[Rfam]
RNA sequence: UGAUAGCGUAGAAGCGUGAGGUUGCUGCCGAAUCUGGCAGGUUUUCCGUGGAGCGAAGGUCAAGUUAUGAAACUGGCGACAA
Dot-bracket structure: .............(((.((((...(((((......)))))..))))))).........(((..((((......)))))))..